[Rfam]
About this RNA
The record is a 78-nucleotide RNA sequence from Nasonia vitripennis, which matches "mir-932 microRNA precursor family" in Rfam. The base pairs follow the family's consensus structure, which was predicted with RNAalifold. A reference for the family is Yu et al. (2008), "The silkworm (Bombyx mori) microRNAs and their expressions in multiple developmental stages", PLoS One. Rfam links the family to the GO terms RISC complex and miRNA-mediated post-transcriptional gene silencing.
RNA sequence: UGCCUCUUCAAUUCCGUAGUGCAUUGCAGUAGAUUUAAAAGAAAGAUUCUGCAAGCACCGCGGGAGUGAGGCGGCUUC
Numbered sequence: 001u002g003c004c005u006c007u008u009c010a011a012u013u014c015c016g017u018a019g020u021g022c023a024u025u026g027c028a029g030u031a032g033a034u035u036u037a038a039a040a041g042a043a044a045g046a047u048u049c050u051g052c053a054a055g056c057a058c059c060g061c062g063g064g065a066g067u068g069a070g071g072c073g074g075c076u077u078c
Base pairs, nucleotide, nucleotide: 006071007070008069009068010067013064014063015062016061017060020057021056022055024054025053026052027051028050